[Rfam]
Plastid-rps18 3UTR RNA: a 57-nucleotide RNA from Populus trichocarpa.
Pairs were carried over by alignment from the consensus structure, which was predicted with LocARNA.
By type it is a cis-regulatory element.
Rfam's curators write: Plastid rps18 is a non-coding RNA (ncRNA) present in plastids. It was identified as a short stem-loop motif in the 3 prime untranslate region (3UTR) of rps18 gene.
Taxonomically the source falls in Populus (Eukaryota, Streptophytina, Euphyllophyta, Mesangiospermae).

RNA sequence: UGUAAUUAUUUUACCAUUAAGAGGCAGUUGUUUCUUGUACAAAUUGUUUAUUAAUGU
Numbered sequence: 001u002g003u004a005a006u007u008a009u010u011u012u013a014c015c016a017u018u019a020a021g022a023g024g025c026a027g028u029u030g031u032u033u034c035u036u037g038u039a040c041a042a043a044u045u046g047u048u049u050a051u052u053a054a055u056g057u
Stems, first nucleotide, its partner, number of pairs: 018037008
It scores 62 bits against the family's covariance model.